[Rfam]
RNA sequence: GCAUGGCUGAAUACUGUGUUCUUUUUACCAGUAGCUUACACAGCCAGACAUCAUGCAAAAGUAAAGACUUCCUUUUAAAAUGGCUAUGAUGGUAUUCCAAGUUUUUUCAAAGCGUAUCAUUAUUAAAGGUAAAUAUAAAU
Numbered sequence: 001g002c003a004u005g006g007c008u009g010a011a012u013a014c015u016g017u018g019u020u021c022u023u024u025u026u027a028c029c030a031g032u033a034g035c036u037u038a039c040a041c042a043g044c045c046a047g048a049c050a051u052c053a054u055g056c057a058a059a060a061g062u063a064a065a066g067a068c069u070u071c072c073u074u075u076u077a078a079a080a081u082g083g084c085u086a087u088g089a090u091g092g093u094a095u096u097c098c099a100a101g102u103u104u105u106u107u108c109a110a111a112g113c114g115u116a117u118c119a120u121u122a123u124u125a126a127a128g129g130u131a132a133a134u135a136u137a138a139a140u
Base pairs, nucleotide, nucleotide: 001056002055003054004053005052006051014043015042016041017040018039019038069133070132072129073128074127075126076125077124078123087122088121089120090119091118092117093116094115095114097112
Small nucleolar RNA SNORA15: a 140-nucleotide sequence from Rousettus aegyptiacus. About the family: ACA15 is a member of the H/ACA class of snoRNA that guide the sites of modification of uridines to pseudouridines. The base pairs follow the family's consensus structure, which was predicted with RNAfold.